RNA: Streptomyces sRNA 4677
RNA sequence: AGGUGAGGUGGGGUGGGGUGAGGUGGGGGAAACCCACCCCACCCCACCUCACCCCACCCCUCUUUCCUUCCUGCGGCAACAGUUGCGCGGGUAUCACCCAGAUGAGGGAACUGUGCCAACUAGGCUGGAUUUGAGGGUCGUUGCGUGGCAUAUGCUCGCAACCACUCAAGCGAAACAAAUCGGCCCCCGGCCGGGACUCGCAAUCCCGAUCGAGGGCCUGACCACGAGGAAGAAGACGCUUCCUG
Numbered sequence: 001a002g003g004u005g006a007g008g009u010g011g012g013g014u015g016g017g018g019u020g021a022g023g024u025g026g027g028g029g030a031a032a033c034c035c036a037c038c039c040c041a042c043c044c045c046a047c048c049u050c051a052c053c054c055c056a057c058c059c060c061u062c063u064u065u066c067c068u069u070c071c072u073g074c075g076g077c078a079a080c081a082g083u084u085g086c087g088c089g090g091g092u093a094u095c096a097c098c099c100a101g102a103u104g105a106g107g108g109a110a111c112u113g114u115g116c117c118a119a120c121u122a123g124g125c126u127g128g129a130u131u132u133g134a135g136g137g138u139c140g141u142u143g144c145g146u147g148g149c150a151u152a153u154g155c156u157c158g159c160a161a162c163c164a165c166u167c168a169a170g171c172g173a174a175a176c177a178a179a180u181c182g183g184c185c186c187c188c189g190g191c192c193g194g195g196a197c198u199c200g201c202a203a204u205c206c207c208g209a210u211c212g213a214g215g216g217c218c219u220g221a222c223c224a225c226g227a228g229g230a231a232g233a234a235g236a237c238g239c240u241u242c243c244u245g
Base pairs, nucleotide, nucleotide: 002058003057004056065109066108067107068106069105070104127157128156182218183217184216185215186214188212189211193207194206195205196204228243229242230241231240232239